[Rfam]
RNA sequence: UCCUUAUCAAGAGCCAGGGGAGGAAAUUGGUCCUGUGAUCCUGCGGCAACCUGUUAUUUUCUUAAUUGAAGAUAAUAAGGUGCUAAUUCCAACAGACGUAUAGUCUGGAAGAUGAGGG
Dot-bracket structure: ((((((((....(.((((...(((..[[[[)))......)))))((((.(((((((((((........))))))))).))))))...(]]]](((((.....)))))..)))))))))
A member of the RNA family "SAM riboswitch aptamer (S box leader)" from Rossellomorea aquimaris, 118 nucleotides long.
Rfam links the family to the GO term regulation of gene expression.
NCBI's taxonomy places the organism under Bacteria, Bacillati, Bacillota, Bacillaceae, Rossellomorea.
A search with the family's covariance model found it, with a score of 80 bits.